A member of the RNA family "U4atac minor spliceosomal RNA" from Tetraodon nigroviridis, 128 nucleotides long. On this family, see Marz et al., J Mol Evol 2008: "Evolution of spliceosomal snRNA genes in metazoan animals".
RNA sequence: GCUGUCCUUGUCAUGGGGUGGUUGGGAGGCUCGAUGAACGUCUGGUGAGGGCCUCCCUGCUGACACCAUAAUCAACACGCACGCGCCGCCCGGGCCUCGAGCCCGGACCCGGCGCAAUUUUUGGAACC
Numbered sequence: 001g002c003u004g005u006c007c008u009u010g011u012c013a014u015g016g017g018g019u020g021g022u023u024g025g026g027a028g029g030c031u032c033g034a035u036g037a038a039c040g041u042c043u044g045g046u047g048a049g050g051g052c053c054u055c056c057c058u059g060c061u062g063a064c065a066c067c068a069u070a071a072u073c074a075a076c077a078c079g080c081a082c083g084c085g086c087c088g089c090c091c092g093g094g095c096c097u098c099g100a101g102c103c104c105g106g107a108c109c110c111g112g113c114g115c116a117a118u119u120u121u122u123g124g125a126a127c128c
Stems, first nucleotide, its partner, number of pairs: 006018004021060002024057001026055007038046002083115006090106006
The sequence is in the family's curated seed alignment.
U4atac is an essential component of the minor U12-type spliceosome complex which is required for removal of the rarer class of eukaryotic introns (AT-AC, U12-type).